[Rfam]
RNA sequence: UAGAACUAAUAUUUUUCAUGAGUAGAAUGAUGGAGUAACAUCCUGAAAUGCUCUCGUUAAUACUCCGAUUAGCAAUUUAUUGGAUAAAAAAUAAGUUGUUAAAAGCUCGGUGAAGUCGGCUGAAAGCUACCGAAAAGAAUUGUGGAUUAUACCCAACUAACGAAAUCUGCCCAGAGGUGGGUGGUGUAGCCCAUAGGUCGGAUGCCUAUAAA
Numbered sequence: 001u002a003g004a005a006c007u008a009a010u011a012u013u014u015u016u017c018a019u020g021a022g023u024a025g026a027a028u029g030a031u032g033g034a035g036u037a038a039c040a041u042c043c044u045g046a047a048a049u050g051c052u053c054u055c056g057u058u059a060a061u062a063c064u065c066c067g068a069u070u071a072g073c074a075a076u077u078u079a080u081u082g083g084a085u086a087a088a089a090a091a092u093a094a095g096u097u098g099u100u101a102a103a104a105g106c107u108c109g110g111u112g113a114a115g116u117c118g119g120c121u122g123a124a125a126g127c128u129a130c131c132g133a134a135a136a137g138a139a140u141u142g143u144g145g146a147u148u149a150u151a152c153c154c155a156a157c158u159a160a161c162g163a164a165a166u167c168u169g170c171c172c173a174g175a176g177g178u179g180g181g182u183g184g185u186g187u188a189g190c191c192c193a194u195a196g197g198u199c200g201g202a203u204g205c206c207u208a209u210a211a212a
Stems, first nucleotide, its partner, number of pairs: 018054001020053005032044002035041001055204004065110004069102013117200005126190005131162002138158001167184007
RNA: Group II catalytic intron D1-D4-5